RNA: Small nucleolar RNA SNORA64/SNORA10 family
Organism: Octodon degus
RNA sequence: UUUCUCUCAGCUCCGCUGGAUCACACAAGCCUAGUGUGUGUGGUGGCGUAUUUUAUGGGAGAGAGAGAGGAAGGCCCUCCUAAUGCACGACAGAUCUGCCCUAAAGUGGCCUCUCUGUUCUUAGGAGUGCAACACAG
Dot-bracket structure: .(((((((..((((.....(((((((...........))))))).............)))).))))))).......(((((.(.(......(((...(((.......)))...)))...).))))))..........